Overview
Rfam assigns this 74-nucleotide RNA sequence from Borrelia duttonii to the family "tRNA". The organism belongs to Borrelia duttonii, within Bacteria. Rfam classes the family as a transfer RNA.
RNA sequence: GGGAUCAUAGCUCAGGUGGUGAGAGCGCAGGUCUGAUAAACCUGAGGUCGGAGGUUCAAGUCCUCCUGGUCCCA
Numbered sequence: 001g002g003g004a005u006c007a008u009a010g011c012u013c014a015g016g017u018g019g020u021g022a023g024a025g026c027g028c029a030g031g032u033c034u035g036a037u038a039a040a041c042c043u044g045a046g047g048u049c050g051g052a053g054g055u056u057c058a059a060g061u062c063c064u065c066c067u068g069g070u071c072c073c074a
Stems, first nucleotide, its partner, number of pairs: 001073007010026004028044005050066005